[Rfam]
RNA sequence: UAGUUAGCCAAUGAGGAAUCUAAAAGAAGCUGGAACCAAAUUUGCCACUUAAACGAAAGUGAACCUUUAUUGAGGCGUACAGGGCUGGGUGGGGUGCCGCGAACCACCAAAGCCCAAUCAUCUACUCGUAACCCCUGUAUGUAUAGAAGGUAGGUGGGCAAAGAAAGAGGCGUUU
Numbered sequence: 001u002a003g004u005u006a007g008c009c010a011a012u013g014a015g016g017a018a019u020c021u022a023a024a025a026g027a028a029g030c031u032g033g034a035a036c037c038a039a040a041u042u043u044g045c046c047a048c049u050u051a052a053a054c055g056a057a058a059g060u061g062a063a064c065c066u067u068u069a070u071u072g073a074g075g076c077g078u079a080c081a082g083g084g085c086u087g088g089g090u091g092g093g094g095u096g097c098c099g100c101g102a103a104c105c106a107c108c109a110a111a112g113c114c115c116a117a118u119c120a121u122c123u124a125c126u127c128g129u130a131a132c133c134c135c136u137g138u139a140u141g142u143a144u145a146g147a148a149g150g151u152a153g154g155u156g157g158g159c160a161a162a163g164a165a166a167g168a169g170g171c172g173u174u175u
Stems, first nucleotide, its partner, number of pairs: 001017001004014003029175001033171001037167001041162006047155005064150005075142003079138006087115004093108004